[Rfam]
RNA sequence: GGGGGCGACAUGGUUUCGACGUCGAUCGCAAAACCCGAGGGGCAUGCCGAGCUGCAAAUCUGCUCGUUAAACGGUUUGCAAAAAAGCUAGUUGCGAACGACUCCAACUACGCCCUCGCCGCCUAAACUCCGGUGAGCGUUUGACCCGGCAGUGUCGGUACUCCGGAAUCAAACGUCGACUCUUACCGAAUAAGGCUGACGCGCGCCCUUCGCCGAUGCUCGAAAACCCCAAGGGGAUAGGUUCCAGCGAUCCGUGCCUGUUCGGGAGCUGGGGAUGAAAACCAAAGACUAGGCUAAGCAUGUAGAACCGAAGGCGGAGCAUUGGCGGACGGGGGUUCAAUUCCCCCCGCCUCCACCA
Numbered sequence: 001g002g003g004g005g006c007g008a009c010a011u012g013g014u015u016u017c018g019a020c021g022u023c024g025a026u027c028g029c030a031a032a033a034c035c036c037g038a039g040g041g042g043c044a045u046g047c048c049g050a051g052c053u054g055c056a057a058a059u060c061u062g063c064u065c066g067u068u069a070a071a072c073g074g075u076u077u078g079c080a081a082a083a084a085a086g087c088u089a090g091u092u093g094c095g096a097a098c099g100a101c102u103c104c105a106a107c108u109a110c111g112c113c114c115u116c117g118c119c120g121c122c123u124a125a126a127c128u129c130c131g132g133u134g135a136g137c138g139u140u141u142g143a144c145c146c147g148g149c150a151g152u153g154u155c156g157g158u159a160c161u162c163c164g165g166a167a168u169c170a171a172a173c174g175u176c177g178a179c180u181c182u183u184a185c186c187g188a189a190u191a192a193g194g195c196u197g198a199c200g201c202g203c204g205c206c207c208u209u210c211g212c213c214g215a216u217g218c219u220c221g222a223a224a225a226c227c228c229c230a231a232g233g234g235g236a237u238a239g240g241u242u243c244c245a246g247c248g249a250u251c252c253g254u255g256c257c258u259g260u261u262c263g264g265g266a267g268c269u270g271g272g273g274a275u276g277a278a279a280a281c282c283a284a285a286g287a288c289u290a291g292g293c294u295a296a297g298c299a300u301g302u303a304g305a306a307c308c309g310a311a312g313g314c315g316g317a318g319c320a321u322u323g324g325c326g327g328a329c330g331g332g333g334g335u336u337c338a339a340u341u342c343c344c345c346c347c348g349c350c351u352c353c354a355c356c357a
Stems, first nucleotide, its partner, number of pairs: 001353007020326007035313002040308002043301005048066005053080007114136007137174006145165003150161003154188003193219003204237001206235004239275001241273007251264003255293004259288003330346005

Shown here is a 357-nucleotide RNA sequence from Hydrocarboniphaga daqingensis, a member of the family "transfer-messenger RNA". A search with the family's covariance model found it, with a score of 202 bits. From the family's description: Bacterial tmRNA, also known as 10Sa RNA or SsrA, is named for its dual tRNA and mRNA-like properties. Rfam classes the family as a non-coding RNA gene.